A member of the RNA family "Glycine riboswitch aptamer" from Cupriavidus sp. HPC(L), 117 nucleotides long. Its family is annotated with glycine biosynthetic process in the Gene Ontology.
Nucleotides: 117
Base pairs, nucleotide, nucleotide: 007111010108011107012106013105020047021046022045023044049097050096051095052093053092056091057090058089062084063083064082065081
Number, partner (000 for none) and nucleotide at each position: 001000c002000g003000a004000c005000a006000a007111c008000g009000a010108a011107c012106u013105g014000g015000a016000g017000a018000g019000c020047g021046c022045c023044g024000c025000c026000a027000u028000c029000a030000u031000g032000a033000u034000u035000u036000g037000a038000c039000g040000a041000u042000g043000a044023c045022g046021g047020c048000c049097g050096c051095c052093g053092a054000a055000g056091g057090g058089g059000c060000a061000a062084g063083c064082c065081g066000g067000g068000u069000c070000c071000g072000g073000g074000g075000c076000g077000g078000a079000c080000g081065c082064g083063g084062u085000g086000a087000a088000u089058c090057u091056c092053u093052c094000a095051g096050g097049c098000a099000a100000a101000a102000g103000g104000a105013c106012a107011g108010u109000g110000g111007g112000g113000g114000c115000a116000g117000c
Taxonomically the source falls in Cupriavidus (Bacteria, Pseudomonadota, Betaproteobacteria, Burkholderiales).